[Rfam]
RNA sequence: AAGUGAAAUGAUGGCAAUCAUCUUUCGGGACUGACCUGAAAUGAGGAACCUACUCAUUGCUGAUCACUU
Number, nucleotide and partner (000 for none) at each position: 001a069002a068003g067004u066005g065006a064007a000008a000009u000010g000011a000012u000013g000014g000015c000016a000017a000018u000019c000020a000021u000022c000023u000024u000025u000026c000027g000028g000029g000030a000031c000032u000033g000034a000035c000036c000037u000038g000039a000040a000041a000042u000043g000044a000045g000046g000047a000048a000049c000050c000051u000052a000053c000054u000055c000056a000057u000058u000059g000060c000061u000062g000063a000064u006065c005066a004067c003068u002069u001
Shown here is a 69-nucleotide sequence from Galemys pyrenaicus, a member of the family "Small nucleolar RNA SNORD2". On this family, see Zhou et al., Gene 2004: "Identification of a novel box C/D snoRNA from mouse nucleolar cDNA library". Lineage of the source: Eukaryota > Opisthokonta > Amniota > Talpidae > Galemys. The base pairs follow the family's consensus structure, which was predicted with WAR. Its family is annotated with RNA processing and nucleolus in the Gene Ontology.